[Rfam]
RNA: c-di-GMP-I riboswitch aptamer
Organism: Methylomonas sp. LWB
RNA sequence: GCGUGUAAAAGCCAAACUCGCCGCGAGGCGGGGACGGAAAGUUUCAGGUCUUGGCUUGGGUCGGUCGCCGGGGAUGGCGGCGGGCGGUAGGAAGCCGACAAGCCAAGACGGCUGGGCUGUCACC
Numbered sequence: 001g002c003g004u005g006u007a008a009a010a011g012c013c014a015a016a017c018u019c020g021c022c023g024c025g026a027g028g029c030g031g032g033g034a035c036g037g038a039a040a041g042u043u044u045c046a047g048g049u050c051u052u053g054g055c056u057u058g059g060g061u062c063g064g065u066c067g068c069c070g071g072g073g074a075u076g077g078c079g080g081c082g083g084g085c086g087g088u089a090g091g092a093a094g095c096c097g098a099c100a101a102g103c104c105a106a107g108a109c110g111g112c113u114g115g116g117c118u119g120u121c122a123c124c
Stems, first nucleotide, its partner, number of pairs: 012037002017032006040118004045114003048109003054103004